Rfam assigns this 74-nucleotide RNA from Anolis carolinensis to the family "mir-205 microRNA precursor family". The sequence is in the family's curated seed alignment.

RNA sequence: CUUGGGUGCCCUUCAUUCCACCGGAAUCUGUCACCGCAAAAACCGGAUUUCUGUGAAAUGAAGCCCACCAGGCA
Numbered sequence: 001c002u003u004g005g006g007u008g009c010c011c012u013u014c015a016u017u018c019c020a021c022c023g024g025a026a027u028c029u030g031u032c033a034c035c036g037c038a039a040a041a042a043c044c045g046g047a048u049u050u051c052u053g054u055g056a057a058a059u060g061a062a063g064c065c066c067a068c069c070a071g072g073c074a
Base pairs, nucleotide, nucleotide: 011063012062013061014060015059016058019055020054021053023051024050025049026048028046029045030044